[Rfam]
RNA: Proteobacterial sRNA psRNA2
RNA sequence: GGGUUACUCCUUGGCGCUUGCGCGCUGUUUUGAUGAAGAUUCGCACCUCUAUCAAAACGGGUAACCCCGCCUCUUGGCAAGGCCUUACUGUCAGAUCAAGUCUGAACUUCUAUACAUCAGCCGAUGAUGGUUGUACCAGGCGACCCAUUCCAGCGUUGCCA
Numbered sequence: 001g002g003g004u005u006a007c008u009c010c011u012u013g014g015c016g017c018u019u020g021c022g023c024g025c026u027g028u029u030u031u032g033a034u035g036a037a038g039a040u041u042c043g044c045a046c047c048u049c050u051a052u053c054a055a056a057a058c059g060g061g062u063a064a065c066c067c068c069g070c071c072u073c074u075u076g077g078c079a080a081g082g083c084c085u086u087a088c089u090g091u092c093a094g095a096u097c098a099a100g101u102c103u104g105a106a107c108u109u110c111u112a113u114a115c116a117u118c119a120g121c122c123g124a125u126g127a128u129g130g131u132u133g134u135a136c137c138a139g140g141c142g143a144c145c146c147a148u149u150c151c152a153g154c155g156u157u158g159c160c161a
Stems, first nucleotide, its partner, number of pairs: 001067007009060002014025004027058009037048002075152003081145002086143001090107002092104005109140003114134003